[Rfam]
Nucleotides: 127
Stems, first nucleotide, its partner, number of pairs: 001054006014041007022033003066118006074110005079104001082102001084100003
Number, partner (000 for none) and nucleotide at each position: 001054g002053c003052a004051g005050a006049c007000u008000c009000a010000c011000u012000c013000u014041g015040u016039a017038c018037c019036c020035g021000g022033c023032u024031g025000c026000a027000g028000u029000c030000c031024c032023a033022g034000g035020c036019g037018g038017g039016u040015g041014c042000u043000u044000u045000u046000u047000c048000u049006g050005u051004c052003u053002g054001c055000u056000a057000c058000a059000g060000a061000a062000a063000c064000a065000u066118u067117c068116c069115g070114g071113g072000g073000u074110g075109c076108u077107g078106u079104g080000a081000c082102u083000a084100c085099u086098u087000u088000g089000a090000c091000c092000u093000g094000u095000c096000a097000a098086a099085g100084g101000c102082g103000a104079u105000a106078a107077c108076a109075g110074u111000u112000g113071c114070c115069u116068g117067g118066a119000g120000a121000c122000a123000c124000a125000a126000g127000g
Notes
Rfam assigns this 127-nucleotide sequence from Hipposideros armiger to the family "Small nucleolar RNA SNORA77". For this family Rfam cites "A computational screen for mammalian pseudouridylation guide H/ACA RNAs" (Schattner et al., RNA, 2006). The organism belongs to Hipposideros, within Eukaryota. Rfam links the family to the GO terms nucleolus and RNA processing. The match comes from Rfam's covariance-model search (114 bits). The family's RNA type in Rfam is H/ACA-box small nucleolar RNA. About the family: ACA63 (SNORA77) is a member of the H/ACA class of snoRNAs that guide the sites of modification of uridines to pseudouridines. This snoRNA was identified by computational screening and its expression in mouse experimentally verified by Northern blot and primer extension analysis. ACA63 is proposed to guide the pseudouridylation of 18S rRNA U814. The family has 19 seed sequences and 843 matches in Rfam 15.1.